[Rfam]
RNA sequence: AGAAUAUUUUGGCAAAAUUUUUGAAAGAAAAUGACGCAAAACUAUAGGGCCUGUAAAAUGGUUGCCAGUUGCUUUG
Numbered sequence: 001a002g003a004a005u006a007u008u009u010u011g012g013c014a015a016a017a018u019u020u021u022u023g024a025a026a027g028a029a030a031a032u033g034a035c036g037c038a039a040a041a042c043u044a045u046a047g048g049g050c051c052u053g054u055a056a057a058a059u060g061g062u063u064g065c066c067a068g069u070u071g072c073u074u075u076g
Stems, first nucleotide, its partner, number of pairs: 012037002017032006040070004047066002049062003

Source information:
This 76-nucleotide sequence from Lachnospiraceae bacterium A4 belongs to the Rfam family "c-di-GMP-I riboswitch aptamer". Gene Ontology term of the family: cyclic-di-GMP binding. From the family's description: GEMM was predicted in a large-scale screen for bacterial structured RNA regulatory elements.